Plastid-psbA-1 3UTR RNA: a 111-nucleotide RNA from Musa balbisiana. It is annotated as a cis-regulatory element. Lineage of the source: Eukaryota > Streptophyta > Petrosaviidae > Zingiberales > Musa. Plastid psbA-1 is a non-coding RNA (ncRNA) present in plastids. A reference for the family is Richter et al. (2023), "Retrograde signaling in plants: A critical review focusing on the GUN pathway and beyond", Plant Commun.

[Rfam]
RNA sequence: GAGAGUUUUCAUCUACAAAUGGAUAAGAUUUUUGUCUUAGUGUAUCGACUCGUUGAAACAAAGUAGUCAAUACCCCUGUCUUGCUUUAGCAGACUGGGGUAUUGCUACUAU
Numbered sequence: 001g002a003g004a005g006u007u008u009u010c011a012u013c014u015a016c017a018a019a020u021g022g023a024u025a026a027g028a029u030u031u032u033u034g035u036c037u038u039a040g041u042g043u044a045u046c047g048a049c050u051c052g053u054u055g056a057a058a059c060a061a062a063g064u065a066g067u068c069a070a071u072a073c074c075c076c077u078g079u080c081u082u083g084c085u086u087u088a089g090c091a092g093a094c095u096g097g098g099g100u101a102u103u104g105c106u107a108c109u110a111u
Base pairs, nucleotide, nucleotide: 008023009022010021011020012019060111062109063108064107065106066105068104069103070102071101072100073099074098075097076096078094079093080092081091